[Rfam]
Rfam assigns this 134-nucleotide RNA from Hibiscus syriacus to the family "mir-172 microRNA precursor family". It scores 71 bits against the family's covariance model. The source organism's lineage runs through Eukaryota, Viridiplantae, Streptophytina, Malvaceae and Hibiscus. For this family Rfam cites "CARPEL FACTORY, a Dicer homolog, and HEN1, a novel protein, act in microRNA metabolism in Arabidopsis thaliana" (Park et al., Curr Biol, 2002). mir-172 has been experimentally verified in Arabidopsis thaliana. This family is thought to target mRNAs coding for APETALA2-like transcription factors. The mature sequence is excised from the 3' arm of the hairpin. Pairs were carried over by alignment from the consensus structure, which was predicted with PFOLD.
RNA sequence: UUUAUUGCCGAUGCAGCAUCAUCAAGAUUCUCACUUUCAAAAAUCUUUGGCAAUAAAGUUUGGAAGGGGAAGAAGGUUAUUAUCACCACCGUGCAUUUACAUGUGAAUCUUGAUGAUGCCACAUCAGCAAACAA
Numbered sequence: 001u002u003u004a005u006u007g008c009c010g011a012u013g014c015a016g017c018a019u020c021a022u023c024a025a026g027a028u029u030c031u032c033a034c035u036u037u038c039a040a041a042a043a044u045c046u047u048u049g050g051c052a053a054u055a056a057a058g059u060u061u062g063g064a065a066g067g068g069g070a071a072g073a074a075g076g077u078u079a080u081u082a083u084c085a086c087c088a089c090c091g092u093g094c095a096u097u098u099a100c101a102u103g104u105g106a107a108u109c110u111u112g113a114u115g116a117u118g119c120c121a122c123a124u125c126a127g128c129a130a131a132c133a134a
Stems, first nucleotide, its partner, number of pairs: 010125004016119015032103002
Dot-bracket structure: .........((((..(((((((((((((((.((....................................................................)).)))))))))))))))..)))).........